[Rfam]
RNA sequence: CACAUCAGUGUGCUUUGAUGACAUGGCAACAAAUCGCCCCUUGUGGACGCGAUUUGUUGCCACAUUAGCAAAGCGCGCUGAUGUGG
Numbered sequence: 001c002a003c004a005u006c007a008g009u010g011u012g013c014u015u016u017g018a019u020g021a022c023a024u025g026g027c028a029a030c031a032a033a034u035c036g037c038c039c040c041u042u043g044u045g046g047a048c049g050c051g052a053u054u055u056g057u058u059g060c061c062a063c064a065u066u067a068g069c070a071a072a073g074c075g076c077g078c079u080g081a082u083g084u085g086g
Stems, first nucleotide, its partner, number of pairs: 001085017019067003024062014039046002
Shown here is an 86-nucleotide RNA sequence from Gossypium hirsutum, a member of the family "MIR7486 microRNA precursor family".
The source organism's lineage runs through Eukaryota, Viridiplantae, Euphyllophyta, Gunneridae and Gossypium.